[Rfam]
RNA sequence: CACAAGUUCCGGGGACGGUGAAAGUCCGUACCGGCGGUUACAGUCCGCGACCUGAAACAUAUGUUUCGGCUGACUCGGUGAAAUUCCGAGACCGACAGUUACAGUCUGGAUGGGAGGAACUUGUG
Numbered sequence: 001c002a003c004a005a006g007u008u009c010c011g012g013g014g015a016c017g018g019u020g021a022a023a024g025u026c027c028g029u030a031c032c033g034g035c036g037g038u039u040a041c042a043g044u045c046c047g048c049g050a051c052c053u054g055a056a057a058c059a060u061a062u063g064u065u066u067c068g069g070c071u072g073a074c075u076c077g078g079u080g081a082a083a084u085u086c087c088g089a090g091a092c093c094g095a096c097a098g099u100u101a102c103a104g105u106c107u108g109g110a111u112g113g114g115a116g117g118a119a120c121u122u123g124u125g
Stems, first nucleotide, its partner, number of pairs: 003123008016028003030105002032094002034048004043092002052069002074090005096108003

Rfam assigns this 125-nucleotide RNA from Brevibacterium mcbrellneri to the family "FMN riboswitch aptamer (RFN element)". NCBI's taxonomy places the organism under Bacteria, Micrococcales, Brevibacteriaceae, Brevibacterium, Brevibacterium mcbrellneri.